[Rfam]
RNA sequence: GUCAGAGUCAAACUUGCAGCUAGUGGCGUACAAGCGGGGUACAGAAUUUCCACGGAAUUUCAGUUACCAACAGUUGAUAAGCCUCGGGAAGGUCUGAGACUAAGUCCAAUAACGUUCUAGACGGGCGAGCUCAUAAUUGGGCUGCGGUGAUACCAGAAACAGCGGGACAAUACGGAUAACAAUUGACCUAGGAAGCUUGAGGCUGAGGUUGUCUGAUUGUACCGAUGAAACGUCCCGUGACUGGCAAUUUGAGUAUAAUCUGCAAGCCACGUUGAUGGAACACGUGGAACUCAAUUCAGACUAAUCUGACUCUGAC
Numbered sequence: 001g002u003c004a005g006a007g008u009c010a011a012a013c014u015u016g017c018a019g020c021u022a023g024u025g026g027c028g029u030a031c032a033a034g035c036g037g038g039g040u041a042c043a044g045a046a047u048u049u050c051c052a053c054g055g056a057a058u059u060u061c062a063g064u065u066a067c068c069a070a071c072a073g074u075u076g077a078u079a080a081g082c083c084u085c086g087g088g089a090a091g092g093u094c095u096g097a098g099a100c101u102a103a104g105u106c107c108a109a110u111a112a113c114g115u116u117c118u119a120g121a122c123g124g125g126c127g128a129g130c131u132c133a134u135a136a137u138u139g140g141g142c143u144g145c146g147g148u149g150a151u152a153c154c155a156g157a158a159a160c161a162g163c164g165g166g167a168c169a170a171u172a173c174g175g176a177u178a179a180c181a182a183u184u185g186a187c188c189u190a191g192g193a194a195g196c197u198u199g200a201g202g203c204u205g206a207g208g209u210u211g212u213c214u215g216a217u218u219g220u221a222c223c224g225a226u227g228a229a230a231c232g233u234c235c236c237g238u239g240a241c242u243g244g245c246a247a248u249u250u251g252a253g254u255a256u257a258a259u260c261u262g263c264a265a266g267c268c269a270c271g272u273u274g275a276u277g278g279a280a281c282a283c284g285u286g287g288a289a290c291u292c293a294a295u296u297c298a299g300a301c302u303a304a305u306c307u308g309a310c311u312c313u314g315a316c
Base pairs, nucleotide, nucleotide: 001316002315003314004313008309009308010307013266014265015264016263017262018261019260023085025083026082027081038068039067040066041065042063094299095298096297097296098295103242104241105240106239113127114126115125116124117123128143129142130141131140132139133138144238145237146236147235149234150233151232163224164223165222267287268286269285270284271283272282
This 316-nucleotide sequence from Diachasma alloeum belongs to the Rfam family "Nuclear RNase P".
It scores 119 bits against the family's covariance model.
Taxonomically the source falls in Diachasma (Eukaryota, Ecdysozoa, Mandibulata, Hymenoptera).
The family's RNA type in Rfam is ribozyme.
Rfam describes the family as follows. Ribonuclease P (RNase P) is a ubiquitous endoribonuclease, found in archaea, bacteria and eukarya as well as chloroplasts and mitochondria.